[Rfam]
RNA: SAM riboswitch aptamer (S box leader)
RNA sequence: CUCUUAUCGAGAGAGGCAGAGGGACUGGCCCUAUGAAGCCCGGCAACCGCAUUUUCGACGUGCGCGGUGCUAAUUCCAGCGAAAUCGACUCGAUUUCGAAAGAUGAGGG
Numbered sequence: 001c002u003c004u005u006a007u008c009g010a011g012a013g014a015g016g017c018a019g020a021g022g023g024a025c026u027g028g029c030c031c032u033a034u035g036a037a038g039c040c041c042g043g044c045a046a047c048c049g050c051a052u053u054u055u056c057g058a059c060g061u062g063c064g065c066g067g068u069g070c071u072a073a074u075u076c077c078a079g080c081g082a083a084a085u086c087g088a089c090u091c092g093a094u095u096u097c098g099a100a101a102g103a104u105g106a107g108g109g
Base pairs, nucleotide, nucleotide: 001109002108003107004106005105006104007103008102013041015040016039017038021031022030023029025079026078027077028076042071043070044069045068047067048066049063050062051061052060075101080098081097082096083095084094085093